[Rfam]
RNA: EcpR1
RNA sequence: CACCCCAUGGAAUGCUCAGGUCCGCCGCAUCUCCUGGGUCCCGUGGGGCGGUCGGUCAGCCUCGCUCGUAUACGGUGUCCUCGUGCCGUUGAGCAGGCUGGCCGGCCACUUU
Numbered sequence: 001c002a003c004c005c006c007a008u009g010g011a012a013u014g015c016u017c018a019g020g021u022c023c024g025c026c027g028c029a030u031c032u033c034c035u036g037g038g039u040c041c042c043g044u045g046g047g048g049c050g051g052u053c054g055g056u057c058a059g060c061c062u063c064g065c066u067c068g069u070a071u072a073c074g075g076u077g078u079c080c081u082c083g084u085g086c087c088g089u090u091g092a093g094c095a096g097g098c099u100g101g102c103c104g105g106c107c108a109c110u111u112u
Stems, first nucleotide, its partner, number of pairs: 003048008015038006050107011